[Rfam]
RNA sequence: AUAAAUCUUCAGGGCAGGGUGAAAUUCCCGAUCGGCGGUAAAGUCCGCGAGCUAAGCAAAACACUUGGCAGGAACUGGUGAAACUCCAGUACCGACAGUAUAGUCUGGAUGGAAGAAGAGCGUA
Numbered sequence: 001a002u003a004a005a006u007c008u009u010c011a012g013g014g015c016a017g018g019g020u021g022a023a024a025u026u027c028c029c030g031a032u033c034g035g036c037g038g039u040a041a042a043g044u045c046c047g048c049g050a051g052c053u054a055a056g057c058a059a060a061a062c063a064c065u066u067g068g069c070a071g072g073a074a075c076u077g078g079u080g081a082a083a084c085u086c087c088a089g090u091a092c093c094g095a096c097a098g099u100a101u102a103g104u105c106u107g108g109a110u111g112g113a114a115g116a117a118g119a120g121c122g123u124a
Stems, first nucleotide, its partner, number of pairs: 006119005017029003031104002033094002035048004043092002053068001074090005096107003
RNA: FMN riboswitch aptamer (RFN element)